This 148-nucleotide sequence from Streptococcus criceti belongs to the Rfam family "TPP riboswitch aptamer (THI element)". NCBI's taxonomy places the organism under Bacteria, Bacillati, Bacilli, Lactobacillales, Streptococcus.
[Rfam]
RNA sequence: AGGCGUCACAAGAGGAGCUUUUGCUGAGAAUGACCUCCAGUUUUAAGUAAAUUCCAUAACAUUGGAGUUUUGCGCAAAGUCUGGGUGUCUAAACUCUUUGAACCUGAACAAGGUAAUGCUUGCGUAAGGGAUGUGCAGAAAUAAGUGG
Numbered sequence: 001a002g003g004c005g006u007c008a009c010a011a012g013a014g015g016a017g018c019u020u021u022u023g024c025u026g027a028g029a030a031u032g033a034c035c036u037c038c039a040g041u042u043u044u045a046a047g048u049a050a051a052u053u054c055c056a057u058a059a060c061a062u063u064g065g066a067g068u069u070u071u072g073c074g075c076a077a078a079g080u081c082u083g084g085g086u087g088u089c090u091a092a093a094c095u096c097u098u099u100g101a102a103c104c105u106g107a108a109c110a111a112g113g114u115a116a117u118g119c120u121u122g123c124g125u126a127a128g129g130g131a132u133g134u135g136c137a138g139a140a141a142u143a144a145g146u147g148g
Stems, first nucleotide, its partner, number of pairs: 007135004011097004017024002032089003103129003109122004
Pairs were carried over by alignment from the consensus structure, which is taken from published work.